skipping-rope RNA: an 86-nucleotide sequence from Dialister sp. CAG:357. Rfam classes the family as a small RNA. It is one of the family's seed sequences.
[Rfam]
RNA sequence: AAUCUUUGAGGUGGUAAAAUUCGCCGCGGCCACACACCCGACCCGGGUCAGAAGAGAUGCAGGAGAGGCGGCGCCUGCCGAAGGUU
Numbered sequence: 001a002a003u004c005u006u007u008g009a010g011g012u013g014g015u016a017a018a019a020u021u022c023g024c025c026g027c028g029g030c031c032a033c034a035c036a037c038c039c040g041a042c043c044c045g046g047g048u049c050a051g052a053a054g055a056g057a058u059g060c061a062g063g064a065g066a067g068g069c070g071g072c073g074c075c076u077g078c079c080g081a082a083g084g085u086u
Stems, first nucleotide, its partner, number of pairs: 001086008011033005023072005035054001036048004059078005